[Rfam]
RNA sequence: UACCUUUGCAAUCGAAAUAUAGAUCGUCUAUAGUUCAUGCAUAAAAAUCAUUUAAAAAGAAUAUUGGCAUG
Numbered sequence: 001u002a003c004c005u006u007u008g009c010a011a012u013c014g015a016a017a018u019a020u021a022g023a024u025c026g027u028c029u030a031u032a033g034u035u036c037a038u039g040c041a042u043a044a045a046a047a048u049c050a051u052u053u054a055a056a057a058a059g060a061a062u063a064u065u066g067g068c069a070u071g
Stems, first nucleotide, its partner, number of pairs: 014036003018032004
A member of the RNA family "S15-Flavobacteria ribosomal protein leader" from Myroides phaeus, 71 nucleotides long. It is annotated as a cis-regulatory leader.